RNA sequence: GGGGAUGUCUGGUUUCGACAGGGCCGUAGGCGCGAAGAUUGCAAGCCGAGGUCGCCCCGGGACUCGUAAAAAGGGGCAAAGCCAUAAACGGCAACGAGUCUUACGCUCUCGCCGCUUAAUAACUAGCGGCGACGUCCACCCUGACCCCACCCCGGCGGGUUGGGAGUGGGCGCCACAAGGCCGGGGUGCUGCUGGUCCGAGCGUCGGAUAGGAUCAGCAUAAGACCAUCCGACUACCGCGACGAAACCCUGUCGGUGGGGGUUCGGCGCGGGAUCCAAAACACCGACUAAGCUUGUAGUAGAUCUUCGGCUGAAGGUUCUGGACGGGGGUUCGAUUCCCCCCAUCUCCACCG
Number, nucleotide and partner (000 for none) at each position: 001g348002g347003g346004g345005a344006u343007g342008u000009c000010u000011g000012g000013u000014u000015u000016c000017g000018a000019c321020a320021g319022g318023g317024c316025c315026g000027u313028a000029g000030g311031c000032g000033c308034g307035a306036a305037g304038a303039u302040u301041g000042c295043a294044a293045g292046c291047c066048g065049a064050g063051g000052u000053c000054g077055c076056c075057c074058c073059g000060g000061g000062a000063c050064u049065c048066g047067u000068a000069a000070a000071a000072a000073g058074g057075g056076g055077c054078a000079a000080a000081g000082c000083c000084a000085u000086a000087a000088a000089c000090g000091g000092c000093a000094a000095c000096g000097a000098g000099u000100c000101u000102u000103a000104c000105g000106c000107u000108c000109u132110c131111g130112c129113c128114g127115c126116u000117u000118a000119a000120u000121a000122a000123c000124u000125a000126g115127c114128g113129g112130c111131g110132a109133c172134g171135u170136c169137c168138a167139c000140c164141c163142u162143g000144a160145c159146c158147c157148c000149a000150c186151c185152c184153c183154g182155g181156c000157g147158g146159g145160u144161u000162g142163g141164g140165a000166g000167u138168g137169g136170g135171c134172g133173c000174c000175a000176c000177a000178a000179g000180g000181c155182c154183g153184g152185g151186g150187u000188g000189c000190u219191g218192c217193u216194g215195g214196u213197c212198c000199g000200a000201g000202c000203g233204u232205c231206g230207g229208a000209u000210a000211g000212g197213a196214u195215c194216a193217g192218c191219a190220u000221a000222a000223g000224a000225c000226c000227a000228u000229c207230c206231g205232a204233c203234u000235a000236c271237c270238g269239c268240g267241a000242c265243g264244a263245a262246a000247c260248c259249c258250u000251g287252u286253c285254g284255g283256u282257g281258g249259g248260g247261g000262u245263u244264c243265g242266g000267c240268g239269c238270g237271g236272g000273a000274u000275c000276c000277a000278a000279a000280a000281c257282a256283c255284c254285g253286a252287c251288u000289a000290a000291g046292c045293u044294u043295g042296u000297a000298g000299u000300a000301g040302a039303u038304c037305u036306u035307c034308g033309g000310c000311u030312g000313a027314a000315g025316g024317u023318u022319c021320u020321g019322g000323a000324c000325g341326g340327g339328g338329g337330u000331u000332c000333g000334a000335u000336u000337c329338c328339c327340c326341c325342c007343a006344u005345c004346u003347c002348c001349a000350c000351c000352g000
RNA: transfer-messenger RNA
Organism: Sphaerobacter thermophilus